Shown here is a 51-nucleotide RNA, a member of the family "Glutamine riboswitch aptamer (glnA leader)". Rfam's curators put it in the seed alignment. The base pairs follow the family's consensus structure, which is taken from published work.
RNA sequence: AACGUUCAACCAUUUAGGUCGGAAGUAGGUUUGAAGCCGAAGGAACGCAUC
Numbered sequence: 001a002a003c004g005u006u007c008a009a010c011c012a013u014u015u016a017g018g019u020c021g022g023a024a025g026u027a028g029g030u031u032u033g034a035a036g037c038c039g040a041a042g043g044a045a046c047g048c049a050u051c
Base pairs, nucleotide, nucleotide: 003047004046005045006044007043009019010018011017022048028038029037030036